[Rfam]
RNA: mir-9256 microRNA precursor family
Organism: Pipistrellus kuhlii
RNA sequence: AUAUACACUGAGUGGCCAGAGUAUUAUGUUCUGUGAACACAUAAUACUCUGGCCACUCAGUGUAUAU
Numbered sequence: 001a002u003a004u005a006c007a008c009u010g011a012g013u014g015g016c017c018a019g020a021g022u023a024u025u026a027u028g029u030u031c032u033g034u035g036a037a038c039a040c041a042u043a044a045u046a047c048u049c050u051g052g053c054c055a056c057u058c059a060g061u062g063u064a065u066a067u
Base pairs, nucleotide, nucleotide: 004064005063006062007061008060009059010058011057012056013055014054015053016052017051019049020048021047022046023045024044025043026042027041028040